[Rfam]
Nucleotides: 115
Base pairs, nucleotide, nucleotide: 004107005106006105007104008103009102010101011100022042023041025040026039027038028037043071044070045069046068047067048066082091083090084089
Number, partner (000 for none) and nucleotide at each position: 001000a002000g003000a004107g005106g006105c007104a008103g009102a010101g011100a012000u013000a014000a015000a016000a017000a018000c019000a020000c021000a022042g023041u024000c025040c026039c027038g028037g029000u030000a031000g032000g033000u034000a035000g036000u037028c038027c039026g040025g041023g042022c043071g044070c045069a046068g047067c048066g049000g050000c051000g052000g053000a054000u055000a056000u057000u058000c059000a060000u061000a062000a063000a064000a065000g066048c067047g068046c069045u070044g071043u072000c073000a074000g075000u076000a077000a078000c079000c080000u081000u082091c083090c084089u085000c086000c087000u088000u089084a090083g091082g092000u093000c094000g095000u096000c097000c098000g099000u100011u101010c102009u103008u104007u105006g106005c107004c108000g109000u110000g111000a112000a113000u114000u115000u
The family of this 115-nucleotide RNA sequence from Lactonifactor longoviformis is "azaaromatic riboswitch aptamer (yjdF RNA)". It scores 84 bits against the family's covariance model.